[Rfam]
Nucleotides: 055
Base pairs, nucleotide, nucleotide: 001055002054003053004052005051006050007049008048010029011028012027013026014025015024016023032047033046034045035044036043
Number, partner (000 for none) and nucleotide at each position: 001055c002054a003053g004052u005051c006050g007049g008048g009000a010029g011028g012027g013026c014025u015024g016023c017000a018000u019000a020000u021000c022000u023016g024015c025014g026013g027012u028011c029010c030000g031000u032047c033046g034045g035044g036043c037000a038000a039000g040000a041000u042000a043036g044035c045034c046033c047032g048008c049007u050006c051005g052004g053003c054002u055001g
Shown here is a 55-nucleotide sequence, a member of the family "DUF3800-VI RNA". It is annotated as a cis-regulatory element. It is one of the family's seed sequences. The base pairs follow the family's consensus structure, which is taken from published work.